[Rfam]
RNA sequence: UUCUUAUUCAGAGAGGUGGAGGGACUUGGCCCUGCGAUACCUCGGCAACGGACUUUUUAAGUGCUGUGCUAAAUCCAACAAGCGUCAGCUUGAAAAAUAAGAA
Numbered sequence: 001u002u003c004u005u006a007u008u009c010a011g012a013g014a015g016g017u018g019g020a021g022g023g024a025c026u027u028g029g030c031c032c033u034g035c036g037a038u039a040c041c042u043c044g045g046c047a048a049c050g051g052a053c054u055u056u057u058u059a060a061g062u063g064c065u066g067u068g069c070u071a072a073a074u075c076c077a078a079c080a081a082g083c084g085u086c087a088g089c090u091u092g093a094a095a096a097a098u099a100a101g102a103a
Stems, first nucleotide, its partner, number of pairs: 001103008013043005021032003026078004044070004049066002052062004074095001079092005

This 103-nucleotide sequence from Virgibacillus necropolis belongs to the Rfam family "SAM riboswitch aptamer (S box leader)". The family's consensus secondary structure is taken from published work. NCBI's taxonomy places the organism under Bacteria, Bacillota, Caryophanales, Bacillaceae, Virgibacillus.